Overview
This 97-nucleotide RNA from Allosphingosinicella flava belongs to the Rfam family "Glycine riboswitch aptamer". It scores 65 bits against the family's covariance model. Rfam links the family to the GO term glycine biosynthetic process.
[Rfam]
RNA sequence: GAGACUCGCGCGGGAGAGCGCGGCGGACCAAAAUCCGCCGCCGCCGAAGGAGCAACCACCCCGGAAUCUCUCAGGUCUCAAGGACCGCGCGGGUUUU
Numbered sequence: 001g002a003g004a005c006u007c008g009c010g011c012g013g014g015a016g017a018g019c020g021c022g023g024c025g026g027a028c029c030a031a032a033a034u035c036c037g038c039c040g041c042c043g044c045c046g047a048a049g050g051a052g053c054a055a056c057c058a059c060c061c062c063g064g065a066a067u068c069u070c071u072c073a074g075g076u077c078u079c080a081a082g083g084a085c086c087g088c089g090c091g092g093g094u095u096u097u
Base pairs, nucleotide, nucleotide: 006092007091008090009089010088011087012086013085020041021040022039023038024037025036026035027034043076044075045074046072047071050070051069052068056064057063

About this RNA:
NCBI's taxonomy places the organism under Bacteria, Pseudomonadati, Pseudomonadota, Sphingomonadales, Allosphingosinicella.